Glutamine riboswitch aptamer (glnA leader): a 95-nucleotide RNA from Leptolyngbya sp. BL0902. The family's consensus secondary structure is taken from published work. On this family, see Ren et al., Cell Rep 2015: "Structural and Dynamic Basis for Low-Affinity, High-Selectivity Binding of L-Glutamine by the Glutamine Riboswitch". Taxonomically the source falls in Leptolyngbya (Bacteria, Bacillati, Cyanobacteriota, Cyanophyceae).

[Rfam]
RNA sequence: AUCGUUCAUCCCUUCUGCCUGAUGGUCAACACGCUAGGUCGGCCAGGGGCAGCACCAGAGGGACGGAAGUAGGGACAUUCCCGAAGGAACGCGCC
Numbered sequence: 001a002u003c004g005u006u007c008a009u010c011c012c013u014u015c016u017g018c019c020u021g022a023u024g025g026u027c028a029a030c031a032c033g034c035u036a037g038g039u040c041g042g043c044c045a046g047g048g049g050c051a052g053c054a055c056c057a058g059a060g061g062g063a064c065g066g067a068a069g070u071a072g073g074g075a076c077a078u079u080c081c082c083g084a085a086g087g088a089a090c091g092c093g094c095c
Stems, first nucleotide, its partner, number of pairs: 003091005009063005066092001072082003